[Rfam]
RNA sequence: AUAGCAAUACAAGCGCCAGAGCUUGCGCGGAAAUCGCCACGGAAAGGAUUUCAGGCAAGCUGACGAGGUGAGGGUGUUCGGAUUUAUUCGGCGGGGACCCUUCGGUUAUUCAUCCAGACCGUAAGUCGAAACGCAAAACGACCGGGUAACUGGUCGGACAAAGGUUCGGCAGGAUGCUAA
Numbered sequence: 001a002u003a004g005c006a007a008u009a010c011a012a013g014c015g016c017c018a019g020a021g022c023u024u025g026c027g028c029g030g031a032a033a034u035c036g037c038c039a040c041g042g043a044a045a046g047g048a049u050u051u052c053a054g055g056c057a058a059g060c061u062g063a064c065g066a067g068g069u070g071a072g073g074g075u076g077u078u079c080g081g082a083u084u085u086a087u088u089c090g091g092c093g094g095g096g097a098c099c100c101u102u103c104g105g106u107u108a109u110u111c112a113u114c115c116a117g118a119c120c121g122u123a124a125g126u127c128g129a130a131a132c133g134c135a136a137a138a139c140g141a142c143c144g145g146g147u148a149a150c151u152g153g154u155c156g157g158a159c160a161a162a163g164g165u166u167c168g169g170c171a172g173g174a175u176g177c178u179a180a
Stems, first nucleotide, its partner, number of pairs: 020061007029052004070102005078091004103121005125170006139156007